[Rfam]
RNA sequence: AUCGUCUUUCUUCGCGCGGGAGCUCGACCCGCGACUGCCGUGGUGACCGCGUUCAUCGACGCCCACCACGAGAGGUUCGGGGUCGUGCCGAUCUGCAGGGUGCUCACCGAGCACGGCUGCCCGAUCGCCCCG
Numbered sequence: 001a002u003c004g005u006c007u008u009u010c011u012u013c014g015c016g017c018g019g020g021a022g023c024u025c026g027a028c029c030c031g032c033g034a035c036u037g038c039c040g041u042g043g044u045g046a047c048c049g050c051g052u053u054c055a056u057c058g059a060c061g062c063c064c065a066c067c068a069c070g071a072g073a074g075g076u077u078c079g080g081g082g083u084c085g086u087g088c089c090g091a092u093c094u095g096c097a098g099g100g101u102g103c104u105c106a107c108c109g110a111g112c113a114c115g116g117c118u119g120c121c122c123g124a125u126c127g128c129c130c131c132g
Stems, first nucleotide, its partner, number of pairs: 016032005078132005089127002092124002095120004

A member of the RNA family "ALIL pseudoknot" from Ornithinimicrobium ciconiae, 132 nucleotides long. Rfam classes the family as a cis-regulatory element. The family's consensus secondary structure is taken from published work. The literature on the family includes a 2008 paper in J Biol Chem by Mazauric et al., "Apical loop-internal loop RNA pseudoknots: a new type of stimulator of -1 translational frameshifting in bacteria". It scores 64 bits against the family's covariance model.